[Rfam]
RNA: MIR398 microRNA precursor family
RNA sequence: AGGGGUUCCGCAGGAGCGAACUGGGAUCACAUGCGUGCACCCUCACACUAACACAAUGUUCUGCAUUGCCAGUGUAUUGUGCUCGAUGUGUUCUCAGGUCGCCCCUGCAGUACCUUC
Numbered sequence: 001a002g003g004g005g006u007u008c009c010g011c012a013g014g015a016g017c018g019a020a021c022u023g024g025g026a027u028c029a030c031a032u033g034c035g036u037g038c039a040c041c042c043u044c045a046c047a048c049u050a051a052c053a054c055a056a057u058g059u060u061c062u063g064c065a066u067u068g069c070c071a072g073u074g075u076a077u078u079g080u081g082c083u084c085g086a087u088g089u090g091u092u093c094u095c096a097g098g099u100c101g102c103c104c105c106u107g108c109a110g111u112a113c114c115u116u117c
Base pairs, nucleotide, nucleotide: 008110011107012106013105014104016102017101018100019099023095024094025093026092028090029089030088031087032086